The family of this 75-nucleotide sequence from Cnephaeus nilssonii is "mir-9193 microRNA precursor family". Rfam 15.1 lists 6,008 matches to the family in 8 species. Its family is annotated with miRNA-mediated post-transcriptional gene silencing and RISC complex in the Gene Ontology. The organism belongs to Cnephaeus, within Eukaryota. Pairs were carried over by alignment from the consensus structure, which was predicted with RNAalifold. It scores 63 bits against the family's covariance model.
RNA sequence: CUUGGGGGUGGGGGGGAUCCCUCAACCUGGGUUGUGAGAGGGUGCAGGCCAGCUGAGGGACCCCACCAGUGCACG
Numbered sequence: 001c002u003u004g005g006g007g008g009u010g011g012g013g014g015g016g017a018u019c020c021c022u023c024a025a026c027c028u029g030g031g032u033u034g035u036g037a038g039a040g041g042g043u044g045c046a047g048g049c050c051a052g053c054u055g056a057g058g059g060a061c062c063c064c065a066c067c068a069g070u071g072c073a074c075g
Base pairs, nucleotide, nucleotide: 003073004072006070009068010067011066013064014063015062016061018060019059020058021057022056023055024054026052029050030049032047033046034045035044036043
Dot-bracket structure: ..((.(..(((.((((.(((((((.(..((.(((((......))))).)).).))))))))))).))).).))..